[Rfam]
RNA sequence: GGUAAUAAAUUGACGGUGUAAUAGACUUAUUGGACCCGGGGGCAGUGCCCGGCGCCUCCACCAAAGAAAACAAUGGGGGCGAAAUAGGAUCGACAAGAAGUUCAAAGAUCGCUCUUUUACCCGGUAUAGUACCACCGUUAUCGGGCUGUUUUAAUAGUUGCAAACGACAACUACGCGGAAGCACGCAUCGCUGCAUAA
Numbered sequence: 001g002g003u004a005a006u007a008a009a010u011u012g013a014c015g016g017u018g019u020a021a022u023a024g025a026c027u028u029a030u031u032g033g034a035c036c037c038g039g040g041g042g043c044a045g046u047g048c049c050c051g052g053c054g055c056c057u058c059c060a061c062c063a064a065a066g067a068a069a070a071c072a073a074u075g076g077g078g079g080c081g082a083a084a085u086a087g088g089a090u091c092g093a094c095a096a097g098a099a100g101u102u103c104a105a106a107g108a109u110c111g112c113u114c115u116u117u118u119a120c121c122c123g124g125u126a127u128a129g130u131a132c133c134a135c136c137g138u139u140a141u142c143g144g145g146c147u148g149u150u151u152u153a154a155u156a157g158u159u160g161c162a163a164a165c166g167a168c169a170a171c172u173a174c175g176c177g178g179a180a181g182c183a184c185g186c187a188u189c190g191c192u193g194c195a196u197a198a
Stems, first nucleotide, its partner, number of pairs: 001121005014111004026100003030096003036052005053081007122137004
A member of the RNA family "permuted transfer-messenger RNA" from Candidatus Tokpelaia sp. JSC161, 198 nucleotides long. It is annotated as a non-coding RNA gene. A search with the family's covariance model found it, with a score of 141 bits. The source organism's lineage runs through Bacteria, Pseudomonadati, Alphaproteobacteria, Hyphomicrobiales and Candidatus Tokpelaia.